[Rfam]
RNA sequence: GUUUUCUGGCAGUGCUGUUAGCUGGUUGUGAUAAAAUCUUACAACCACUAUCUGCCCUGUCUGAAAAU
Numbered sequence: 001g002u003u004u005u006c007u008g009g010c011a012g013u014g015c016u017g018u019u020a021g022c023u024g025g026u027u028g029u030g031a032u033a034a035a036a037u038c039u040u041a042c043a044a045c046c047a048c049u050a051u052c053u054g055c056c057c058u059g060u061c062u063g064a065a066a067a068u
Stems, first nucleotide, its partner, number of pairs: 001068005008061002011058002014055002017052001019050003023047008
Rfam assigns this 68-nucleotide RNA from Candidula unifasciata to the family "mir-34 microRNA precursor family". Rfam links the family to the GO terms miRNA-mediated post-transcriptional gene silencing and RISC complex. The base pairs follow the family's consensus structure, which was predicted with RNAalifold. Human mir-34a was discovered computationally and later experimentally verified. The mature sequence is excised from the 5' arm of the hairpin. Lineage of the source: Eukaryota > Spiralia > Lophotrochozoa > Gastropoda > Candidula. For this family Rfam cites "Numerous microRNPs in neuronal cells containing novel microRNAs" (Dostie et al., RNA, 2003).